[Rfam]
RNA: Mason-Pfizer monkey virus packaging signal
Organism: Nannospalax galili
RNA sequence: UGGCGCCCAACAUGGGGCUGGAUACUGGGGGCACAUCAUGAGGGAGACGACGGAGGAAAAGGAGUGCACUUGCUAAAUCUCAAGCAAUUUGGAGAUGUGCCGCAGGAGCCUGCUGCGACUGAACUGAAGUUCAGUCAUCUGAUCAUGGGGCAAGAAUUAAGCCAGCAUCAGAUUUAUGUUACACAGUUGAGGGAGGCUCUCAAGACAAGAGGAGUAAAGGUUAAGACUGUGAUUUAUUUCAUUUCUUUGAUUUUGUAAAGGACAUUUGUCCCU
Numbered sequence: 001u002g003g004c005g006c007c008c009a010a011c012a013u014g015g016g017g018c019u020g021g022a023u024a025c026u027g028g029g030g031g032c033a034c035a036u037c038a039u040g041a042g043g044g045a046g047a048c049g050a051c052g053g054a055g056g057a058a059a060a061g062g063a064g065u066g067c068a069c070u071u072g073c074u075a076a077a078u079c080u081c082a083a084g085c086a087a088u089u090u091g092g093a094g095a096u097g098u099g100c101c102g103c104a105g106g107a108g109c110c111u112g113c114u115g116c117g118a119c120u121g122a123a124c125u126g127a128a129g130u131u132c133a134g135u136c137a138u139c140u141g142a143u144c145a146u147g148g149g150g151c152a153a154g155a156a157u158u159a160a161g162c163c164a165g166c167a168u169c170a171g172a173u174u175u176a177u178g179u180u181a182c183a184c185a186g187u188u189g190a191g192g193g194a195g196g197c198u199c200u201c202a203a204g205a206c207a208a209g210a211g212g213a214g215u216a217a218a219g220g221u222u223a224a225g226a227c228u229g230u231g232a233u234u235u236a237u238u239u240c241a242u243u244u245c246u247u248u249g250a251u252u253u254u255g256u257a258a259a260g261g262a263c264a265u266u267u268g269u270c271c272c273u
Base pairs, nucleotide, nucleotide: 006031007030008029012026013024014023036050037049039047090129096123101117102116103115104114105113136150138149139148140147141146159200161197162196163195209248210247211246212245213244214243218235219234220233221232222231223230258273260271261270262269263268